[Rfam]
RNA sequence: AAUUCUACGUUGAUUCUCGUUAGACCAAGAGACUUGUGGAAUAAUAAACUUUGCCUGAUCACACAAAAACGCGGCAAUGGCGUAAGACGUAAUGUGAAAUCAAGCAAUUAGCGGGCUGCGGGUUGCAGCUUGGCCGGCAAGUGGGUAAAGCUCUGUUGUCUUAAAUUCAGAAGCUACCCUUUAUAUAAAAGCGCUGUUUUUCAGAACGAAACACAGGCUUACCGAAAUAAUGCGCCCCUAUGCAGGCGACAACCGUGAGGUUGACGGCUUAGCUAGAAGACUCGGGGCCAUCGGUUUACCCGGUCAUGAGGUUAUUUUGCCCGCAGUUCUAACGCCAA
Number, nucleotide and partner (000 for none) at each position: 001a000002a000003u041004u040005c039006u038007a037008c036009g000010u000011u000012g000013a000014u031015u030016c029017u028018c000019g000020u000021u000022a000023g000024a000025c000026c000027a000028a017029g016030a015031g014032a000033c000034u000035u000036g008037u007038g006039g005040a004041a003042u000043a000044a000045u000046a000047a000048a000049c000050u000051u107052u106053g105054c104055c000056u102057g101058a100059u000060c000061a000062c096063a095064c094065a093066a000067a000068a000069a090070c089071g088072c000073g000074g081075c080076a000077a000078u000079g000080g075081c074082g000083u000084a000085a000086g000087a000088c071089g070090u069091a000092a000093u065094g064095u063096g062097a000098a000099a000100u058101c057102a056103a000104g054105c053106a052107a051108u000109u000110a000111g000112c000113g329114g328115g327116c326117u325118g324119c323120g322121g321122g320123u319124u000125g000126c000127a000128g000129c000130u000131u306132g305133g304134c303135c302136g301137g300138c000139a000140a000141g000142u000143g179144g178145g177146u176147a175148a000149a000150g000151c000152u171153c170154u169155g168156u000157u000158g000159u000160c000161u000162u000163a000164a000165a000166u000167u000168c155169a154170g153171a152172a000173g000174c000175u147176a146177c145178c144179c143180u000181u000182u000183a000184u000185a000186u000187a000188a000189a000190a219191g218192c217193g000194c216195u215196g214197u213198u000199u211200u210201u209202c208203a000204g000205a000206a000207c000208g202209a201210a200211a199212c000213a197214c196215a195216g194217g192218c191219u190220u000221a295222c294223c293224g292225a291226a000227a000228u000229a000230a000231u000232g000233c000234g288235c287236c286237c285238c284239u000240a000241u000242g000243c000244a000245g000246g000247c266248g265249a000250c263251a262252a261253c260254c259255g000256u000257g000258a000259g254260g253261u252262u251263g250264a000265c248266g247267g000268c000269u000270u000271a000272g000273c000274u000275a000276g000277a000278a000279g000280a000281c000282u000283c000284g238285g237286g236287g235288c234289c000290a000291u225292c224293g223294g222295u221296u000297u000298a000299c000300c137301c136302g135303g134304u133305c132306a131307u000308g000309a000310g000311g000312u000313u000314a000315u000316u000317u000318u000319g123320c122321c121322c120323g119324c118325a117326g116327u115328u114329c113330u000331a000332a000333c000334g000335c000336c000337a000338a000
RNA: RNase E 5' UTR element
Organism: Yersinia pseudotuberculosis